[Rfam]
Shown here is a 73-nucleotide sequence from Vallitalea guaymasensis, a member of the family "Fluoride riboswitch aptamer (crcB RNA motif)". NCBI's taxonomy places the organism under Bacteria, Bacillota, Clostridia, Vallitaleaceae, Vallitalea. The match comes from Rfam's covariance-model search (41 bits). Its family is annotated with positive regulation of gene expression and response to fluoride in the Gene Ontology.
RNA sequence: UUUUGUGCAGGGAAUGAAGUUCUCCCUUAGCAAAAGCUAGAACCGCUUAUACGCUGAUGACUUCUGUGAUUAU
Numbered sequence: 001u002u003u004u005g006u007g008c009a010g011g012g013a014a015u016g017a018a019g020u021u022c023u024c025c026c027u028u029a030g031c032a033a034a035a036g037c038u039a040g041a042a043c044c045g046c047u048u049a050u051a052c053g054c055u056g057a058u059g060a061c062u063u064c065u066g067u068g069a070u071u072a073u
Stems, first nucleotide, its partner, number of pairs: 010026004016064006045054002